[Rfam]
RNA: SAM riboswitch aptamer (S box leader)
RNA sequence: UAUCCAUCCCGAGCGACCGAGAGACCUGGCUCGCCGAAGUCGCAGCAACCACCCCCGUCGGGCAGGUGCUACCGCCAGGAUCGAUGGAGG
Numbered sequence: 001u002a003u004c005c006a007u008c009c010c011g012a013g014c015g016a017c018c019g020a021g022a023g024a025c026c027u028g029g030c031u032c033g034c035c036g037a038a039g040u041c042g043c044a045g046c047a048a049c050c051a052c053c054c055c056c057g058u059c060g061g062g063c064a065g066g067u068g069c070u071a072c073c074g075c076c077a078g079g080a081u082c083g084a085u086g087g088a089g090g
Stems, first nucleotide, its partner, number of pairs: 001090001003088006013043005021032003026078004044070004049066002052062003074082001